[Rfam]
Annotation:
MIR6288 microRNA precursor family: a 92-nucleotide RNA from Hymenochirus boettgeri. Its family is annotated with RISC complex and miRNA-mediated post-transcriptional gene silencing in the Gene Ontology. The organism belongs to Hymenochirus, within Eukaryota.
RNA sequence: CCAAGAAAGCCAGUUUGUUGUUUUGUACUUCUUCCCUUGUGAAUUUAAUAAAACAAGGGAAGAAGUACAAAACAACAAACUGGCUUUCUUGG
Numbered sequence: 001c002c003a004a005g006a007a008a009g010c011c012a013g014u015u016u017g018u019u020g021u022u023u024u025g026u027a028c029u030u031c032u033u034c035c036c037u038u039g040u041g042a043a044u045u046u047a048a049u050a051a052a053a054c055a056a057g058g059g060a061a062g063a064a065g066u067a068c069a070a071a072a073c074a075a076c077a078a079a080c081u082g083g084c085u086u087u088c089u090u091g092g
Base pairs, nucleotide, nucleotide: 002091003090004089005088006087007086008085009084010083011082012081013080014079015078016077017076018075019074020073021072022071023070024069025068026067027066028065029064030063031062032061033060034059035058036057037056038055039054